[Rfam]
RNA sequence: CGUAUGGUGUCUGGCAACUAAUUUGACCAGAUAGCGAUACGGCCUAACGAGGU
Numbered sequence: 001c002g003u004a005u006g007g008u009g010u011c012u013g014g015c016a017a018c019u020a021a022u023u024u025g026a027c028c029a030g031a032u033a034g035c036g037a038u039a040c041g042g043c044c045u046a047a048c049g050a051g052g053u
Stems, first nucleotide, its partner, number of pairs: 001041005007035002011030004015025003
The record is a 53-nucleotide sequence from Rheinheimera baltica, which matches "L31-Gammaproteobacteria ribosomal protein leader" in Rfam. It is one of the family's seed sequences. On this family, see Eckert and Weinberg, BMC Microbiol 2020: "Discovery of 20 novel ribosomal leader candidates in bacteria and archaea". The family's RNA type in Rfam is cis-regulatory leader.